Record summary: Shown here is a 135-nucleotide sequence from Strigops habroptila, a member of the family "U4 spliceosomal RNA". The family has 177 seed sequences and 32,178 matches in Rfam 15.1. The family is grouped with related families in Rfam's "U4 clan". By type it is a spliceosomal small nuclear RNA. The source organism's lineage runs through Eukaryota, Archelosauria, Coelurosauria, Telluraves and Strigops.

[Rfam]
RNA sequence: AGCUUUGUACAGUGGCAGUAUUGUAGCCAAUGAGGUUAAUCUGAGGUGUGAUUAUUGCUAGUUGAAAACUCCUCCCAUUUUGGGUUCAAACUUCAACAGGGGAAGUUUAGGUCAGAUAUAAGAAGGAAGUUCUUC
Number, nucleotide and partner (000 for none) at each position: 001a000002g000003c000004u000005u000006u000007g000008u000009a000010c000011a000012g000013u000014g000015g000016c000017a000018g000019u000020a052021u051022u050023g049024u048025a000026g047027c046028c045029a000030a000031u000032g000033a000034g042035g041036u000037u000038a000039a000040u000041c035042u034043g000044a000045g028046g027047u026048g024049u023050g022051a021052u020053u000054a000055u000056u000057g000058c000059u000060a000061g000062u000063u000064g000065a000066a000067a000068a000069c000070u000071c000072c000073u000074c000075c000076c000077a000078u000079u000080u000081u000082g000083g000084g113085u000086u111087c000088a108089a107090a106091c105092u104093u103094c102095a000096a000097c000098a000099g000100g000101g000102g094103a093104a092105g091106u090107u089108u088109a000110g000111g086112u000113c084114a000115g000116a000117u000118a000119u000120a000121a000122g000123a000124a000125g000126g135127a134128a133129g000130u000131u000132c000133u128134u127135c126